Small nucleolar RNA SNORA31: a 133-nucleotide RNA from Ursus americanus. ACA31 (SNORA31) belongs to the H/ACA class of snoRNAs which are thought to guide the sites of modification of uridines to pseudouridines. ACA31 is predicted to guide the pseudouridylation of U3713 in 28S rRNA and U218 in 18S rRNA. This family includes the mouse homologue snoMBI-161. The family's RNA type in Rfam is H/ACA-box small nucleolar RNA. For this family Rfam cites "RNomics: an experimental approach that identifies 201 candidates for novel, small, non-messenger RNAs in mouse" (Huttenhofer et al., EMBO J, 2001). NCBI's taxonomy places the organism under Eukaryota, Opisthokonta, Eumetazoa, Laurasiatheria, Ursus. The match comes from Rfam's covariance-model search (45 bits).
RNA sequence: CUGCAUCUAUUUGACAGACUUGUAGCAGUUACUGUCUGCUGCUAAGGUUUCCACUAGAGAUGCAAGAAAAAUGUGUCCGUGCUUUCUGUCUGUCUGAUUGUGGCAGUCAAUAGGGCAAUACAGGGAAAAAUAC
Dot-bracket structure: .(((((((...((..(((((..((((((.......))))))....))))).))....)))))))...........(((.((...((((.(((((.......)))))....))))......)).))).......